[Rfam]
Nucleotides: 184
Base pairs, nucleotide, nucleotide: 002065003064004063005062006061011057012056013055016052017051020048021047022046023045025043027041028040029039030038031037116178117177118176119175120174121173124172126171136158138156139155140154141153
Number, partner (000 for none) and nucleotide at each position: 001000u002065u003064g004063c005062a006061u007000u008000u009000a010000u011057u012056g013055g014000g015000u016052u017051g018000a019000u020048u021047g022046a023045g024000u025043g026000u027041g028040a029039g030038g031037g032000c033000u034000u035000u036000a037031u038030c039029c040028u041027u042000u043025c044000u045023c046022u047021u048020g049000u050000a051017u052016a053000u054000a055013c056012c057011a058000a059000u060000g061006a062005u063004g064003c065002a066000c067000a068000c069000a070000u071000u072000g073000a074000a075000a076000a077000c078000c079000a080000g081000u082000u083000g084000a085000u086000u087000u088000u089000u090000c091000a092000a093000u094000u095000g096000g097000u098000a099000g100000c101000g102000g103000c104000c105000a106000g107000a108000c109000a110000a111000c112000c113000g114000u115000a116178g117177g118176g119175a120174u121173g122000u123000g124172g125000u126171a127000u128000c129000c130000a131000c132000a133000g134000a135000u136158a137000a138156c139155g140154g141153g142000u143000u144000u145000a146000a147000u148000u149000c150000a151000g152000u153141c154140c155139c156138g157000a158136u159000u160000u161000g162000u163000c164000u165000a166000c167000u168000a169000a170000c171126u172124c173121c174120a175119u176118c177117u178116u179000a180000c181000a182000u183000a184000u